The family of this 53-nucleotide RNA sequence from Mergibacter septicus is "L31-Gammaproteobacteria ribosomal protein leader". By type it is a cis-regulatory leader.
RNA sequence: CAUACGGUAUCGGUAAAGUAGCUCCGAUGGCGGUAUGGCUUCCAAACAGAGGU
Number, nucleotide and partner (000 for none) at each position: 001c037002a036003u035004a034005c033006g000007g031008u030009a000010u000011c026012g025013g024014u000015a000016a000017a000018g000019u000020a000021g000022c000023u000024c013025c012026g011027a000028u000029g000030g008031c007032g000033g005034u004035a003036u002037g001038g000039c000040u000041u000042c000043c000044a000045a000046a000047c000048a000049g000050a000051g000052g000053u000